[Rfam]
Group II catalytic intron D1-D4-3: a 172-nucleotide RNA from Sedimentisphaera salicampi.
RNA sequence: GUCACCGUGAGGUGAGGUCUGAAGGAAGCCGCAGGCAAAAUGCUGCUCUGACGAACAGGAAUCGCACACGAGGCGUUGUUACUGGAUAAGAAGGCCAAUAUCUUCAAAGUCCAAUAGUUACACGGAAAGUAUCAACGUAUAUGCGGCAGAGAUAAGCAGGAAGGCGUAUGUG
Numbered sequence: 001g002u003c004a005c006c007g008u009g010a011g012g013u014g015a016g017g018u019c020u021g022a023a024g025g026a027a028g029c030c031g032c033a034g035g036c037a038a039a040a041u042g043c044u045g046c047u048c049u050g051a052c053g054a055a056c057a058g059g060a061a062u063c064g065c066a067c068a069c070g071a072g073g074c075g076u077u078g079u080u081a082c083u084g085g086a087u088a089a090g091a092a093g094g095c096c097a098a099u100a101u102c103u104u105c106a107a108a109g110u111c112c113a114a115u116a117g118u119u120a121c122a123c124g125g126a127a128a129g130u131a132u133c134a135a136c137g138u139a140u141a142u143g144c145g146g147c148a149g150a151g152a153u154a155a156g157c158a159g160g161a162a163g164g165c166g167u168a169u170g171u172g
Base pairs, nucleotide, nucleotide: 002015003014004013005012006011030170031169035165036164041158042157043156044155046151047150048149049148050147062146063145064144065143066142073138074137075136077134078133080131081130082129083128084112085111086110087109090105091104092103093102
Pairs were carried over by alignment from the consensus structure. A reference for the family is Bonen and Vogel (2001), "The ins and outs of group II introns", Trends Genet.